[Rfam]
RNA: Small nucleolar RNA Z103
Organism: Tripterygium wilfordii
RNA sequence: AUGGAUUUGAUGAUUAUUUCCCCAGAUGAUCGAAGCUGAACAUACUGAGCGAUUCUUUUCUCAUUUUAUUGAGAAUCCAAGCCAGAACUCUGAUCCAU
Number, nucleotide and partner (000 for none) at each position: 001a098002u097003g096004g095005a094006u000007u000008u000009g000010a000011u000012g000013a000014u000015u000016a000017u000018u000019u000020c000021c000022c000023c000024a000025g000026a000027u000028g000029a000030u000031c000032g000033a000034a000035g000036c000037u000038g000039a000040a000041c000042a000043u000044a000045c000046u000047g000048a000049g000050c000051g000052a000053u000054u000055c000056u000057u000058u000059u000060c000061u000062c000063a000064u000065u000066u000067u000068a000069u000070u000071g000072a000073g000074a000075a000076u000077c000078c000079a000080a000081g000082c000083c000084a000085g000086a000087a000088c000089u000090c000091u000092g000093a000094u005095c004096c003097a002098u001